[Rfam]
RNA sequence: CUGGGGUGAUGCUUCAUUAGCCAAAUCAGACAUUUUUGAUGUACUCCUUAAGGCAUCCACCUCAAAGCUAUUUGUUGGAUGGGAUACCUUUUGUUGAAGCGCAUCCUCUGAUGAUACCCUCGGGAUUGGUUUCUUGUCUAACCAGA
Numbered sequence: 001c002u003g004g005g006g007u008g009a010u011g012c013u014u015c016a017u018u019a020g021c022c023a024a025a026u027c028a029g030a031c032a033u034u035u036u037u038g039a040u041g042u043a044c045u046c047c048u049u050a051a052g053g054c055a056u057c058c059a060c061c062u063c064a065a066a067g068c069u070a071u072u073u074g075u076u077g078g079a080u081g082g083g084a085u086a087c088c089u090u091u092u093g094u095u096g097a098a099g100c101g102c103a104u105c106c107u108c109u110g111a112u113g114a115u116a117c118c119c120u121c122g123g124g125a126u127u128g129g130u131u132u133c134u135u136g137u138c139u140a141a142c143c144a145g146a
Stems, first nucleotide, its partner, number of pairs: 001145004